[Rfam]
RNA: Bacteriophage Diversity-Generating Retroelement RNA
RNA sequence: GAUCCACAAACGCCACGGCUUUGUGGUCAGACCUAUGCAAAUGUGGUCAGCCAGUUUUGUCCUCCUACGGGAAACACUUUUCGGGAUUCGACAGAACGCAGAGUAGUGAAACAUCGAAAGGCGAGGUCGAU
Numbered sequence: 001g002a003u004c005c006a007c008a009a010a011c012g013c014c015a016c017g018g019c020u021u022u023g024u025g026g027u028c029a030g031a032c033c034u035a036u037g038c039a040a041a042u043g044u045g046g047u048c049a050g051c052c053a054g055u056u057u058u059g060u061c062c063u064c065c066u067a068c069g070g071g072a073a074a075c076a077c078u079u080u081u082c083g084g085g086a087u088u089c090g091a092c093a094g095a096a097c098g099c100a101g102a103g104u105a106g107u108g109a110a111a112c113a114u115c116g117a118a119a120g121g122c123g124a125g126g127u128c129g130a131u
Stems, first nucleotide, its partner, number of pairs: 001028002004026007012019002063072003086131001088130005097123003106115001107113001